[Rfam]
RNA sequence: UGGACAGAUUAUUGUAUUCACAACGUAAAAUAGGGGAUUACACUGUUUUUAAAAUAGAAAGUGAAUCAAUUAACAUAAUAGACUCCU
Numbered sequence: 001u002g003g004a005c006a007g008a009u010u011a012u013u014g015u016a017u018u019c020a021c022a023a024c025g026u027a028a029a030a031u032a033g034g035g036g037a038u039u040a041c042a043c044u045g046u047u048u049u050u051a052a053a054a055u056a057g058a059a060a061g062u063g064a065a066u067c068a069a070u071u072a073a074c075a076u077a078a079u080a081g082a083c084u085c086c087u
Base pairs, nucleotide, nucleotide: 002086003085004084009081010080011079012078013068014067016066017065018064019063020062021061025055026054027049028048029047030046031045032044033043
The record is an 87-nucleotide sequence from Nicotiana tabacum, which matches "MIR6152 microRNA precursor family" in Rfam.
The organism belongs to Nicotiana, within Eukaryota.
The match comes from Rfam's covariance-model search (67 bits).
The family has 2 seed sequences and 5,807 matches in Rfam 15.1.
Pairs were carried over by alignment from the consensus structure, which was predicted with RNAalifold.